[Rfam]
RNA sequence: GAAGUUGACUGGAUAGUCGCUGCUUCGUUGACGUCCCCUUGAGCUUGUCUUGGGGGAGACUGACGGAGGGGAGGAACGUCCGGGCUCCACAGAGCAGGGUGCCAGGUAACGCCUGGGGGGCGUGAGCCCACGACAAGUGCAGCAGAGAGAAGACCGCCGAUGGCUCCAUUUCUUCGGAAGGAGCACAGGUAAGGGUGAAAGGGUGCGGUAAGAGCGCACCGGACGACUGGUAACAGUUCGUUGCAAGGUAAACUCCACCCGGAGCAAGACCAAAUAGGCUUCCACAUUGCGUUGCUCGCGUAUGGAGGCGGGUAGGUUGCUCGAGCCAGUGAGCGAUUGCUGGCCUAGACGAAUGGCUAUCACCGCUUCGGCGGAUACAGAACCCGGCGUACAGGUCAACUUCACCU
Numbered sequence: 001g002a003a004g005u006u007g008a009c010u011g012g013a014u015a016g017u018c019g020c021u022g023c024u025u026c027g028u029u030g031a032c033g034u035c036c037c038c039u040u041g042a043g044c045u046u047g048u049c050u051u052g053g054g055g056g057a058g059a060c061u062g063a064c065g066g067a068g069g070g071g072a073g074g075a076a077c078g079u080c081c082g083g084g085c086u087c088c089a090c091a092g093a094g095c096a097g098g099g100u101g102c103c104a105g106g107u108a109a110c111g112c113c114u115g116g117g118g119g120g121c122g123u124g125a126g127c128c129c130a131c132g133a134c135a136a137g138u139g140c141a142g143c144a145g146a147g148a149g150a151a152g153a154c155c156g157c158c159g160a161u162g163g164c165u166c167c168a169u170u171u172c173u174u175c176g177g178a179a180g181g182a183g184c185a186c187a188g189g190u191a192a193g194g195g196u197g198a199a200a201g202g203g204u205g206c207g208g209u210a211a212g213a214g215c216g217c218a219c220c221g222g223a224c225g226a227c228u229g230g231u232a233a234c235a236g237u238u239c240g241u242u243g244c245a246a247g248g249u250a251a252a253c254u255c256c257a258c259c260c261g262g263a264g265c266a267a268g269a270c271c272a273a274a275u276a277g278g279c280u281u282c283c284a285c286a287u288u289g290c291g292u293u294g295c296u297c298g299c300g301u302a303u304g305g306a307g308g309c310g311g312g313u314a315g316g317u318u319g320c321u322c323g324a325g326c327c328a329g330u331g332a333g334c335g336a337u338u339g340c341u342g343g344c345c346u347a348g349a350c351g352a353a354u355g356g357c358u359a360u361c362a363c364c365g366c367u368u369c370g371g372c373g374g375a376u377a378c379a380g381a382a383c384c385c386g387g388c389g390u391a392c393a394g395g396u397c398a399a400c401u402u403c404a405c406c407u
Stems, first nucleotide, its partner, number of pairs: 001403010011392001012361007020071002023068008076390003080387005085264004092297004097260005102116005117131001118129004132255002137253002139249002154194002156190003161187002163184004202220006221244001222242005227236003268318004278309006288302005325344008
RNA: Bacterial RNase P class A
Organism: Vibrio mediterranei